RNA sequence: CUAUGCUGCAUUGUUGUUGCAUUGCAUCCUGCAGUGCCUUGUGGGUGCGAUGUAGUAACAGUGCUGCACAG
Dot-bracket structure: ((.(...(((((((((..(.(((((((.................))))))).)..)))))))))...).))
Numbered sequence: 001c002u003a004u005g006c007u008g009c010a011u012u013g014u015u016g017u018u019g020c021a022u023u024g025c026a027u028c029c030u031g032c033a034g035u036g037c038c039u040u041g042u043g044g045g046u047g048c049g050a051u052g053u054a055g056u057a058a059c060a061g062u063g064c065u066g067c068a069c070a071g
Stems, first nucleotide, its partner, number of pairs: 001071002004068001008064009019053001021051007
The record is a 71-nucleotide RNA sequence from Petromyzon marinus, which matches "mir-33 microRNA precursor family" in Rfam. On this family, see Ahn et al., Mol Hum Reprod 2010: "MicroRNA transcriptome in the newborn mouse ovaries determined by massive parallel sequencing". Rfam's curators put it in the seed alignment. Rfam links the family to the GO terms RISC complex and gene silencing by miRNA. The family has 73 seed sequences and 1,467 matches in Rfam 15.1. The family's consensus secondary structure was predicted with PFOLD.